[Rfam]
RNA sequence: UUGUCUGACAUGCAAACCGUUCGCGAGAAUGGGACGCAAAGCCGUGGGUCUCCUUUGAGACAGCCUGGUCGCCGGA
Dot-bracket structure: ...........((...((((((....))))))...))...(((..(((((.(....).)))..)).))).......
Numbered sequence: 001u002u003g004u005c006u007g008a009c010a011u012g013c014a015a016a017c018c019g020u021u022c023g024c025g026a027g028a029a030u031g032g033g034a035c036g037c038a039a040a041g042c043c044g045u046g047g048g049u050c051u052c053c054u055u056u057g058a059g060a061c062a063g064c065c066u067g068g069u070c071g072c073c074g075g076a
Stems, first nucleotide, its partner, number of pairs: 012037002017032006041069003046065002048061003052057001